Record summary: The record is a 377-nucleotide RNA sequence from Luteipulveratus mongoliensis, which matches "Bacterial RNase P class A" in Rfam.
RNA sequence: UGAGUCGGUCAGACGGCCGCGUCGCCAGGUUCGCCUGGUGCCGAGGAACGUCCGGGCUCCACAGGGCAAGGUGAUGGUUAACGGCCAUCCGGGGCGACCCGCGGGACAGUGCCACAGAAAGCAGACCGCCACCGGUUCGCCGGUGGUAAGGGUGAAACGGUGGUGUAAGAGACCACCAGCGCUCCAGGUGACUGGAGCGGCUCGGUAAACCCCACCUGGAGCAAGGUCGGACAGCAUGCGUUCGAGGGCGGCCCGCCCGAGCAUGCGGGUAGACCGCUGGAGGCGGCUGGCAACAGUCGUCGUAGAUGGAUGGCCGUCACUCGGUCGCUGGCAACGGCGGCCGGGGACAGAACCCGGCGUACCGACCGACUCAUCCC
Numbered sequence: 001u002g003a004g005u006c007g008g009u010c011a012g013a014c015g016g017c018c019g020c021g022u023c024g025c026c027a028g029g030u031u032c033g034c035c036u037g038g039u040g041c042c043g044a045g046g047a048a049c050g051u052c053c054g055g056g057c058u059c060c061a062c063a064g065g066g067c068a069a070g071g072u073g074a075u076g077g078u079u080a081a082c083g084g085c086c087a088u089c090c091g092g093g094g095c096g097a098c099c100c101g102c103g104g105g106a107c108a109g110u111g112c113c114a115c116a117g118a119a120a121g122c123a124g125a126c127c128g129c130c131a132c133c134g135g136u137u138c139g140c141c142g143g144u145g146g147u148a149a150g151g152g153u154g155a156a157a158c159g160g161u162g163g164u165g166u167a168a169g170a171g172a173c174c175a176c177c178a179g180c181g182c183u184c185c186a187g188g189u190g191a192c193u194g195g196a197g198c199g200g201c202u203c204g205g206u207a208a209a210c211c212c213c214a215c216c217u218g219g220a221g222c223a224a225g226g227u228c229g230g231a232c233a234g235c236a237u238g239c240g241u242u243c244g245a246g247g248g249c250g251g252c253c254c255g256c257c258c259g260a261g262c263a264u265g266c267g268g269g270u271a272g273a274c275c276g277c278u279g280g281a282g283g284c285g286g287c288u289g290g291c292a293a294c295a296g297u298c299g300u301c302g303u304a305g306a307u308g309g310a311u312g313g314c315c316g317u318c319a320c321u322c323g324g325u326c327g328c329u330g331g332c333a334a335c336g337g338c339g340g341c342c343g344g345g346g347a348c349a350g351a352a353c354c355c356g357g358c359g360u361a362c363c364g365a366c367c368g369a370c371u372c373a374u375c376c377c
Base pairs, nucleotide, nucleotide: 001373002372003371004370005369006368007367008366009365010364012318013317014316015315016314017313018312020043021042023040024039025038026037027036028035048360049359050358052357053356054355055354056353057221058220059219060218064254065253066252067251069217070216071215072214073213074088075087076086077085078084089103090101091100092099093098104212105211109210110209111206112205113204126151127150128147129146130145131144132143133142134141135140159177160176161175162174163173164172179201180199181198182197183196184195185194186193187192225275226274227273228272234266235265236264237263238262239261246258247257248256249255282301283300284299285298286297287296288295289294

The match comes from Rfam's covariance-model search (315 bits). It is annotated as a ribozyme. Ribonuclease P (RNase P) is a ubiquitous endoribonuclease, found in archaea, bacteria and eukarya as well as chloroplasts and mitochondria. Its best characterised activity is the generation of mature 5'-ends of tRNAs by cleaving the 5'-leader elements of precursor-tRNAs. The base pairs follow the family's consensus structure, which is taken from published work. The source organism's lineage runs through Bacteria, Bacillati, Actinomycetota, Actinomycetes and Luteipulveratus.